The record is a 70-nucleotide RNA sequence from Nyctereutes procyonoides, which matches "Small nucleolar RNA U2-30" in Rfam. Gene Ontology terms of the family: RNA processing and nucleolus. The match comes from Rfam's covariance-model search (83 bits). The organism belongs to Nyctereutes, within Eukaryota.
RNA sequence: GAUCAAUUACUAAAAAGUUUUACUACAGACUUUUAUAAUUAUGAGGGUUUCUACACUUGAUCUGAGAUCA
Dot-bracket structure: ((((........(((((((........)))))))...............................)))).
Source information:
The literature on the family includes a 2004 paper in Curr Biol by Tycowski et al., "Guide RNAs with 5' Caps and Novel Box C/D snoRNA-like Domains for Modification of snRNAs in Metazoa".